SAM riboswitch aptamer (S box leader): a 101-nucleotide RNA sequence from Heyndrickxia coagulans. The family's consensus secondary structure is taken from published work. Taxonomically the source falls in Heyndrickxia coagulans (Bacteria, Bacillota, Caryophanales, Bacillaceae).

RNA sequence: UUCUUAUCCAGAGAGGUGGAGGGAAAGGCCCUUUGAAGCCUCGGCAACAGGUUGAAAAACACUGUGCCAAUUCCUGCAGACAAUCGUCUGAAAGAUAAGAG
Numbered sequence: 001u002u003c004u005u006a007u008c009c010a011g012a013g014a015g016g017u018g019g020a021g022g023g024a025a026a027g028g029c030c031c032u033u034u035g036a037a038g039c040c041u042c043g044g045c046a047a048c049a050g051g052u053u054g055a056a057a058a059a060c061a062c063u064g065u066g067c068c069a070a071u072u073c074c075u076g077c078a079g080a081c082a083a084u085c086g087u088c089u090g091a092a093a094g095a096u097a098a099g100a101g
Stems, first nucleotide, its partner, number of pairs: 001101008013042005021031003026075003043068004048064002050060001052058001072093001077090005